[Rfam]
Nucleotides: 086
Stems, first nucleotide, its partner, number of pairs: 001086001003084005
Number, partner (000 for none) and nucleotide at each position: 001086c002000a003084u004083g005082g006081a007080u008000c009000g010000a011000u012000g013000a014000u015000g016000u017000g018000a019000u020000u021000g022000u023000a024000a025000a026000c027000u028000g029000c030000g031000u032000u033000a034000u035000c036000u037000a038000u039000c040000u041000c042000g043000a044000a045000c046000u047000u048000c049000u050000c051000a052000a053000g054000u055000a056000c057000u058000g059000a060000a061000g062000a063000a064000a065000a066000c067000a068000u069000u070000a071000c072000c073000u074000g075000c076000u077000g078000a079000g080007a081006u082005c083004c084003a085000a086001g

Shown here is an 86-nucleotide sequence from Triticum aestivum, a member of the family "Small nucleolar RNA snoR27". A search with the family's covariance model found it, with a score of 56 bits. Pairs were carried over by alignment from the consensus structure, which was predicted with WAR. By type it is a C/D-box small nucleolar RNA. The literature on the family includes a 2001 paper in RNA by Brown et al., "Multiple snoRNA gene clusters from Arabidopsis".